A member of the RNA family "MIR480 microRNA precursor family" from Salix brachista, 147 nucleotides long. Gene Ontology terms of the family: RISC complex and miRNA-mediated post-transcriptional gene silencing.
RNA sequence: UAAUCUAUCCGAGACAAAUUCUUAUCUAGUUAUAUAGCAAAUGUACUUUGAGUUACUCAUGAUCAUCCAUUCUCGCAAACCCAACUACAUCAUAUACGCUAGUACAAAAGCUUAUAGUCUUCUAACAUGGAAUGUGGUGUUUUGAAA
Numbered sequence: 001u002a003a004u005c006u007a008u009c010c011g012a013g014a015c016a017a018a019u020u021c022u023u024a025u026c027u028a029g030u031u032a033u034a035u036a037g038c039a040a041a042u043g044u045a046c047u048u049u050g051a052g053u054u055a056c057u058c059a060u061g062a063u064c065a066u067c068c069a070u071u072c073u074c075g076c077a078a079a080c081c082c083a084a085c086u087a088c089a090u091c092a093u094a095u096a097c098g099c100u101a102g103u104a105c106a107a108a109a110g111c112u113u114a115u116a117g118u119c120u121u122c123u124a125a126c127a128u129g130g131a132a133u134g135u136g137g138u139g140u141u142u143u144g145a146a147a
Base pairs, nucleotide, nucleotide: 004145005144007142009139014135015134018133019132023129024128025127027124028123029122